[Rfam]
RNA sequence: GAAAGACGGGUGAGAAACCCGUCCGCCGAAUGAUCAAGGGUUCCAGGGUCAAGCUAAUCUGCCCUGGGUAAGUCGGGACCUAAGGCGAGGCCGACAGGCGUAGUCGAUGGACAACGGGUUGAUAUUCCCGUACCGGCGAAAAACCGCCAAUACUGAUCGGGGGAUACUAACCGCCCAAUACCUGACCGUUAGCCCUUGUGGCGACACGGUUUUUGGUGGAGCGCGGGACCUGAUCCCGGGAGGUAAGCGUAUUAACAGGUGUGACGCAGGAAGGUAGCCGGGCCGGGCGAUGGUUGUCCUGGUCUAAGGAUGUAGGGUCAGUGAUAGGUAAAUCCGUCACUGUGUCUUGGAUGACGCACCUGAGAUCUGACGGGACCCACUUUGGUGGGAAUCCGGUGAUCCUAUGCUGCCUAGAAAAGCAUCGGCGCGAGGUUUUAGCCGCCCGUACCCCAAACCGACACAGGUGAUCAGGUAGAGAAUACUAAGGCGAU
Numbered sequence: 001g002a003a004a005g006a007c008g009g010g011u012g013a014g015a016a017a018c019c020c021g022u023c024c025g026c027c028g029a030a031u032g033a034u035c036a037a038g039g040g041u042u043c044c045a046g047g048g049u050c051a052a053g054c055u056a057a058u059c060u061g062c063c064c065u066g067g068g069u070a071a072g073u074c075g076g077g078a079c080c081u082a083a084g085g086c087g088a089g090g091c092c093g094a095c096a097g098g099c100g101u102a103g104u105c106g107a108u109g110g111a112c113a114a115c116g117g118g119u120u121g122a123u124a125u126u127c128c129c130g131u132a133c134c135g136g137c138g139a140a141a142a143a144c145c146g147c148c149a150a151u152a153c154u155g156a157u158c159g160g161g162g163g164a165u166a167c168u169a170a171c172c173g174c175c176c177a178a179u180a181c182c183u184g185a186c187c188g189u190u191a192g193c194c195c196u197u198g199u200g201g202c203g204a205c206a207c208g209g210u211u212u213u214u215g216g217u218g219g220a221g222c223g224c225g226g227g228a229c230c231u232g233a234u235c236c237c238g239g240g241a242g243g244u245a246a247g248c249g250u251a252u253u254a255a256c257a258g259g260u261g262u263g264a265c266g267c268a269g270g271a272a273g274g275u276a277g278c279c280g281g282g283c284c285g286g287g288c289g290a291u292g293g294u295u296g297u298c299c300u301g302g303u304c305u306a307a308g309g310a311u312g313u314a315g316g317g318u319c320a321g322u323g324a325u326a327g328g329u330a331a332a333u334c335c336g337u338c339a340c341u342g343u344g345u346c347u348u349g350g351a352u353g354a355c356g357c358a359c360c361u362g363a364g365a366u367c368u369g370a371c372g373g374g375a376c377c378c379a380c381u382u383u384g385g386u387g388g389g390a391a392u393c394c395g396g397u398g399a400u401c402c403u404a405u406g407c408u409g410c411c412u413a414g415a416a417a418a419g420c421a422u423c424g425g426c427g428c429g430a431g432g433u434u435u436u437a438g439c440c441g442c443c444c445g446u447a448c449c450c451c452a453a454a455c456c457g458a459c460a461c462a463g464g465u466g467a468u469c470a471g472g473u474a475g476a477g478a479a480u481a482c483u484a485a486g487g488c489g490a491u
Base pairs, nucleotide, nucleotide: 005023006022007021008020009019010018024489025488026487027486032469033468034467035466038449039448043067044066045065046064047063048062052060053059074445075444076443077442079110080109084105085104086103088101090099091098092097114234115232116231117230118229119228120227237441238440239439242436243435245433258423259422260421261420262419266410267409268408269407272403273402274401277397278396279395280394281393282303283302284301285300286299287298304373305372308368309367310366311365315361316360317359319342320341321340322339323338324337325336327335328334376389377388378387379386380385455464456463471483472482473481474480

A member of the RNA family "Bacterial large subunit ribosomal RNA" from Arthrobacter sunyaminii, 491 nucleotides of a longer RNA. The organism belongs to Arthrobacter, within Bacteria. Rfam links the family to the GO terms ribosome and structural constituent of ribosome.